[Rfam]
RNA sequence: CAUGUUUUUGGUGAUGGAGUUCACCAUAAAUGCCUCGGCUAAUGACUCCUACAAAUAA
Numbered sequence: 001c002a003u004g005u006u007u008u009u010g011g012u013g014a015u016g017g018a019g020u021u022c023a024c025c026a027u028a029a030a031u032g033c034c035u036c037g038g039c040u041a042a043u044g045a046c047u048c049c050u051a052c053a054a055a056u057a058a
Stems, first nucleotide, its partner, number of pairs: 010025004016049006032039002
Dot-bracket structure: .........[[[[..((((((]]]]......((....))....)))))).........